Shown here is a 511-nucleotide sequence from Streptomyces microflavus, a member of the family "Saccharopolyspora sRNA 350".

RNA sequence: GUGGCGGUCUGCGUCCACCGGGCGUCGUCGUCCAGCAGGACAUGCUCCCCGAAGUGGUCCCCGCCCGCCAGGACGUCCAGGGUGACCUCGUCGCCGUAGGUGCCGACGGAGGUCUGGCCGAUCCGGCCGUGCGCGACCAGGUGGAGCCGGUCCGCGGCAGCACCCCGUUCGACCAGCGUCUCCCCCGCCCGGAAGUCACGCUGUACGCACCGGUCGGCGAUGGCUGUCAGCACCUCGACGUCGUCGAAGUCCCGCAGUGGGGCCAGUUCCCCCAGCUCCUGGGGGAUGACCCGGACCUCGGCCCCGUCCUGGACGAACUCCACCCGUCCGUCACCCACGGUGAAGGACAGCCUUCGGUUGACCCGGUAGGCACCGCCCUUGGUCUCGACCCAGGGAAGCAUCCGCAGCAGCCACCGGGAGGUGAUCUCCUGCAUCUGCGGGGCGGACUUCGUCGUGCUGGCGAGUUUACGGGCGGCGGCCGUGCCGAGGCUCGACUGCCGGGGCACUUCCA
Dot-bracket structure: .....((((.(.(.(((..(((..(.(...((...((((((.......((((.((..(..((.((......(.((((.(.(((.........))).).)))))....)).).......((.((...(.(((.(((.....(((..((....((..(((.(..(...((...))....)......).))).))..)))))..))).)..)).)...))...))...)..)..)).((...((((((....((..(.(((.(((......)))...))))..))..))))))...))..))))....))))))...))...).).)).).((((......))))............(((....((.....))..)))....))).)).))))(((((.(.(((.(.(.(.......)).)..))).).))))).....((.(..((.(.(((((.......)))))..).))..).))((..((.(((((......))..))).))....)).
Numbered sequence: 001g002u003g004g005c006g007g008u009c010u011g012c013g014u015c016c017a018c019c020g021g022g023c024g025u026c027g028u029c030g031u032c033c034a035g036c037a038g039g040a041c042a043u044g045c046u047c048c049c050c051g052a053a054g055u056g057g058u059c060c061c062c063g064c065c066c067g068c069c070a071g072g073a074c075g076u077c078c079a080g081g082g083u084g085a086c087c088u089c090g091u092c093g094c095c096g097u098a099g100g101u102g103c104c105g106a107c108g109g110a111g112g113u114c115u116g117g118c119c120g121a122u123c124c125g126g127c128c129g130u131g132c133g134c135g136a137c138c139a140g141g142u143g144g145a146g147c148c149g150g151u152c153c154g155c156g157g158c159a160g161c162a163c164c165c166c167g168u169u170c171g172a173c174c175a176g177c178g179u180c181u182c183c184c185c186c187g188c189c190c191g192g193a194a195g196u197c198a199c200g201c202u203g204u205a206c207g208c209a210c211c212g213g214u215c216g217g218c219g220a221u222g223g224c225u226g227u228c229a230g231c232a233c234c235u236c237g238a239c240g241u242c243g244u245c246g247a248a249g250u251c252c253c254g255c256a257g258u259g260g261g262g263c264c265a266g267u268u269c270c271c272c273c274a275g276c277u278c279c280u281g282g283g284g285g286a287u288g289a290c291c292c293g294g295a296c297c298u299c300g301g302c303c304c305c306g307u308c309c310u311g312g313a314c315g316a317a318c319u320c321c322a323c324c325c326g327u328c329c330g331u332c333a334c335c336c337a338c339g340g341u342g343a344a345g346g347a348c349a350g351c352c353u354u355c356g357g358u359u360g361a362c363c364c365g366g367u368a369g370g371c372a373c374c375g376c377c378c379u380u381g382g383u384c385u386c387g388a389c390c391c392a393g394g395g396a397a398g399c400a401u402c403c404g405c406a407g408c409a410g411c412c413a414c415c416g417g418g419a420g421g422u423g424a425u426c427u428c429c430u431g432c433a434u435c436u437g438c439g440g441g442g443c444g445g446a447c448u449u450c451g452u453c454g455u456g457c458u459g460g461c462g463a464g465u466u467u468a469c470g471g472g473c474g475g476c477g478g479c480c481g482u483g484c485c486g487a488g489g490c491u492c493g494a495c496u497g498c499c500g501g502g503g504c505a506c507u508u509c510c511a
Stems, first nucleotide, its partner, number of pairs: 006390004011385001013384001015382003020327001021325002025322001027320001031316002036311006049301004054233002058229001061226001062111001064109002072103001074102004079097001081095003119222002122217002127212001129210002131206001133204003141199003146196002152192002156189003160185001163178001167173002235295002240290006250282002254278001256277003260271003329342004355375003362370002391431005397425001399423003403418001405416001407415001437476002440473001443470002446467001448464005477510002481504002484501003487496002
The source organism's lineage runs through Bacteria, Bacillati, Actinomycetota, Kitasatosporales and Streptomyces. It scores 99 bits against the family's covariance model. It is annotated as an antisense RNA.